[Rfam]
The record is a 78-nucleotide sequence from Afipia sp. P52-10, which matches "Makes More Granules Regulator RNA (mmgR)" in Rfam. NCBI's taxonomy places the organism under Bacteria, Pseudomonadota, Alphaproteobacteria, Nitrobacteraceae, Afipia. SuhB later renamed mmgR (makes more granules regulator) was a putative non-coding RNA found multiple times in the Agrobacterium tumefaciens genome and related alpha-proteobacteria.
RNA sequence: CACCGCUGCCCUCCUUGGGCGUUUCCUCCCUAGACUUGGGCCGCUUGUCUUUACGAGCGGCCCUUUUUUCUUGCCGAA
Number, nucleotide and partner (000 for none) at each position: 001c000002a000003c000004c000005g000006c000007u000008g020009c019010c018011c017012u000013c000014c000015u000016u000017g011018g010019g009020c008021g000022u000023u000024u000025c000026c000027u000028c000029c000030c000031u000032a000033g000034a000035c000036u000037u000038g063039g062040g061041c060042c059043g058044c057045u056046u055047g000048u000049c000050u000051u000052u000053a000054c000055g046056a045057g044058c043059g042060g041061c040062c039063c038064u000065u000066u000067u000068u000069u000070c000071u000072u000073g000074c000075c000076g000077a000078a000